RNA: L31-Gammaproteobacteria ribosomal protein leader
RNA sequence: CGCAUGGUGUCCGGCGGUAUAUGAUCGGAUAGCGAUGCGGCCCAUAAUUGAGGU
Numbered sequence: 001c002g003c004a005u006g007g008u009g010u011c012c013g014g015c016g017g018u019a020u021a022u023g024a025u026c027g028g029a030u031a032g033c034g035a036u037g038c039g040g041c042c043c044a045u046a047a048u049u050g051a052g053g054u
Stems, first nucleotide, its partner, number of pairs: 001039005007033002011028004015023001